[Rfam]
RNA sequence: CCCGAUAAAACCAAACCUGUCGCAAGACAGGGACGGAAAGCAACGGAUCUUCGAACCAGAAGAUGGCCGAGCUGCCGAAG
Number, nucleotide and partner (000 for none) at each position: 001c080002c000003c077004g076005a000006u000007a000008a000009a000010a000011c036012c035013a000014a000015a000016c031017c030018u029019g028020u027021c026022g000023c000024a000025a000026g021027a020028c019029a018030g017031g016032g000033a000034c066035g012036g011037a000038a000039a073040g072041c071042a000043a000044c069045g068046g067047a064048u063049c062050u000051u000052c000053g000054a000055a000056c000057c000058a000059g000060a000061a000062g049063a048064u047065g000066g034067c046068c045069g044070a000071g041072c040073u039074g000075c000076c004077g003078a000079a000080g001
RNA: c-di-GMP-I-GGC riboswitch aptamer
Organism: Syntrophotalea carbinolica